[Rfam]
Nucleotides: 096
Stems, first nucleotide, its partner, number of pairs: 012093001013060006061079003065075003080092003
Number, partner (000 for none) and nucleotide at each position: 001000a002000u003000a004000a005000u006000g007000a008000g009000a010000c011000u012093u013060c014059c015058g016057u017056c018055c019000a020000g021000c022000c023000a024000c025000a026000g027000c028000c029000c030000c031000g032000c033000g034000c035000a036000a037000a038000g039000c040000g041000g042000g043000a044000u045000c046000a047000c048000g049000c050000a051000a052000u053000g054000g055018g056017g057016g058015c059014g060013g061079c062078c063077c064000g065075g066074c067073g068000a069000g070000a071000a072000c073067c074066g075065c076000g077063g078062g079061g080092a081091g082090g083000u084000u085000a086000g087000a088000u089000g090082c091081c092080u093012a094000u095000g096000g
Rfam assigns this 96-nucleotide RNA sequence to the family "pemK RNA". Rfam classes the family as a cis-regulatory element.